Rfam assigns this 89-nucleotide RNA sequence from [Enterobacter] lignolyticus to the family "sroD RNA". The base pairs follow the family's consensus structure, which was predicted with PFOLD. Taxonomically the source falls in [Enterobacter] lignolyticus (Bacteria, Pseudomonadota, Gammaproteobacteria, Enterobacterales).

[Rfam]
RNA sequence: CUUCGUGACGAAGCGCGUGCUAAAGUGGAAAAUAAAGCCUGAGCUACGUGUAAGUCGCCCGAAGACGCCGGCUAAGCCGGCGUUUUUUA
Numbered sequence: 001c002u003u004c005g006u007g008a009c010g011a012a013g014c015g016c017g018u019g020c021u022a023a024a025g026u027g028g029a030a031a032a033u034a035a036a037g038c039c040u041g042a043g044c045u046a047c048g049u050g051u052a053a054g055u056c057g058c059c060c061g062a063a064g065a066c067g068c069c070g071g072c073u074a075a076g077c078c079g080g081c082g083u084u085u086u087u088u089a
Stems, first nucleotide, its partner, number of pairs: 015059001016057002019039001021037001064084008

It is annotated as a small RNA.